[Rfam]
RNA sequence: AUUCCGGUUGAUCCUGCCGGAGGUUACUGCUAUCGGUGUUUGACUAAGCCAUGCGAGUCAAAUGUUCUUCGUGAACAUGGCGUAAUGCUCAGUAACACGUGGAUAACCUGCCCUCAGGUCCGGCAUAACCUCGGGAAACUGAGGAUAAUUCCGGAUAUCUCUUCUCUGCUGGAAUCGCUUGAAGAGACAAAGAAUUUCGCCUGAGGAUGGGUCUGCGGCCUAUCAGGUUGUAGGGGGUGUAACGUACCCUCUAGCCGACAACGGGUACGGGUUGUGAGAGCAAGAGCCCGGAGAUGGAUUCUGAGACAUGAAUCCAGGCCCUACGGGGCGCAGCAGGCGCGAAAACUUUACAAUGCAGGAAACUGUGAUAAGGAGACACCGAGUGCUCGCAUCAAAUGCGGGCUGUCCACAUACCUAAAUCGUAUGUGUUAGCAAGGGCCGGGCAAGACCGGUGCCAGCCGCCGCGGUAAUACCGGUGGCCCGAGUGGUAGCCGCUUUUAUUG
Dot-bracket structure: ...(((((.......))))).((((((((((.((((((((((.....(((.(((..(((..((((((.....)))))))))......(((.......(((((((..((...(((((((.((((.....((((((....))))))......))))....((((((...((.......))..)))))).....((...)).)))))))..))))))))).(((....(((..((((((((.......)))))))))))......)))..((((((((....))))...))))))).((((((..........)))))).((((....))))...)))))).).....(.(((...(((((....))))).)))).)))))))))..((((((((...))))))))...((((((((.......)))))))...)...((((((.......((((.....((....)).......)))))))))).))))))))))..........
Numbered sequence: 001a002u003u004c005c006g007g008u009u010g011a012u013c014c015u016g017c018c019g020g021a022g023g024u025u026a027c028u029g030c031u032a033u034c035g036g037u038g039u040u041u042g043a044c045u046a047a048g049c050c051a052u053g054c055g056a057g058u059c060a061a062a063u064g065u066u067c068u069u070c071g072u073g074a075a076c077a078u079g080g081c082g083u084a085a086u087g088c089u090c091a092g093u094a095a096c097a098c099g100u101g102g103a104u105a106a107c108c109u110g111c112c113c114u115c116a117g118g119u120c121c122g123g124c125a126u127a128a129c130c131u132c133g134g135g136a137a138a139c140u141g142a143g144g145a146u147a148a149u150u151c152c153g154g155a156u157a158u159c160u161c162u163u164c165u166c167u168g169c170u171g172g173a174a175u176c177g178c179u180u181g182a183a184g185a186g187a188c189a190a191a192g193a194a195u196u197u198c199g200c201c202u203g204a205g206g207a208u209g210g211g212u213c214u215g216c217g218g219c220c221u222a223u224c225a226g227g228u229u230g231u232a233g234g235g236g237g238u239g240u241a242a243c244g245u246a247c248c249c250u251c252u253a254g255c256c257g258a259c260a261a262c263g264g265g266u267a268c269g270g271g272u273u274g275u276g277a278g279a280g281c282a283a284g285a286g287c288c289c290g291g292a293g294a295u296g297g298a299u300u301c302u303g304a305g306a307c308a309u310g311a312a313u314c315c316a317g318g319c320c321c322u323a324c325g326g327g328g329c330g331c332a333g334c335a336g337g338c339g340c341g342a343a344a345a346c347u348u349u350a351c352a353a354u355g356c357a358g359g360a361a362a363c364u365g366u367g368a369u370a371a372g373g374a375g376a377c378a379c380c381g382a383g384u385g386c387u388c389g390c391a392u393c394a395a396a397u398g399c400g401g402g403c404u405g406u407c408c409a410c411a412u413a414c415c416u417a418a419a420u421c422g423u424a425u426g427u428g429u430u431a432g433c434a435a436g437g438g439c440c441g442g443g444c445a446a447g448a449c450c451g452g453u454g455c456c457a458g459c460c461g462c463c464g465c466g467g468u469a470a471u472a473c474c475g476g477u478g479g480c481c482c483g484a485g486u487g488g489u490a491g492c493c494g495c496u497u498u499u500a501u502u503g
Stems, first nucleotide, its partner, number of pairs: 004020005022493010033382009042340001048338003052335003057081003062078006088293003098217007107210002112206007120154004129144006159186006168178002192198002219265003226256003231253008268290004272283004295316006318329004346372001348371003354367005385403008407432001408428007436482006449476004458465002
Archaeal small subunit ribosomal RNA: a 503-nucleotide part of an RNA from Methanimicrococcus blatticola.
The literature on the family includes a 2001 paper in Science by Yusupov et al., "Crystal structure of the ribosome at 5.5 A resolution".
The match comes from Rfam's covariance-model search (1541 bits).